The record is a 72-nucleotide sequence from Rhizobium sp. P32RR-XVIII, which matches "Makes More Granules Regulator RNA (mmgR)" in Rfam.
The family's RNA type in Rfam is small RNA.
Pairs were carried over by alignment from the consensus structure.
A search with the family's covariance model found it, with a score of 62 bits.
Rfam's curators write: SuhB later renamed mmgR (makes more granules regulator) was a putative non-coding RNA found multiple times in the Agrobacterium tumefaciens genome and related alpha-proteobacteria.

RNA sequence: UGUAAAUACCCUCCUUGGGUGUUUCCUCCCUAGACUCGCCGCGCUGCACAGCGCGGCUCUUUUUUGACCGCU
Numbered sequence: 001u002g003u004a005a006a007u008a009c010c011c012u013c014c015u016u017g018g019g020u021g022u023u024u025c026c027u028c029c030c031u032a033g034a035c036u037c038g039c040c041g042c043g044c045u046g047c048a049c050a051g052c053g054c055g056g057c058u059c060u061u062u063u064u065u066g067a068c069c070g071c072u
Stems, first nucleotide, its partner, number of pairs: 008020004038057008